[Rfam]
RNA sequence: UCGAGACACGUGGUCCGGCGGCCGGGCACGACCGAUAAACUGGUCUCGGACGACGCCGGGCGCAGCCUCCGGCCGGUCCGUCAAUGAUCAGCCAGCAGCCGCUGCAACACCAGGGAG
Numbered sequence: 001u002c003g004a005g006a007c008a009c010g011u012g013g014u015c016c017g018g019c020g021g022c023c024g025g026g027c028a029c030g031a032c033c034g035a036u037a038a039a040c041u042g043g044u045c046u047c048g049g050a051c052g053a054c055g056c057c058g059g060g061c062g063c064a065g066c067c068u069c070c071g072g073c074c075g076g077u078c079c080g081u082c083a084a085u086g087a088u089c090a091g092c093c094a095g096c097a098g099c100c101g102c103u104g105c106a107a108c109a110c111c112a113g114g115g116a117g
Stems, first nucleotide, its partner, number of pairs: 048079004056072005093104004

The family of this 117-nucleotide sequence from Streptomyces jeddahensis is "Streptomyces-metK RNA". Taxonomically the source falls in Streptomyces (Bacteria, Actinomycetota, Actinomycetes, Kitasatosporales). The match comes from Rfam's covariance-model search (114 bits). Pairs were carried over by alignment from the consensus structure, which is taken from published work.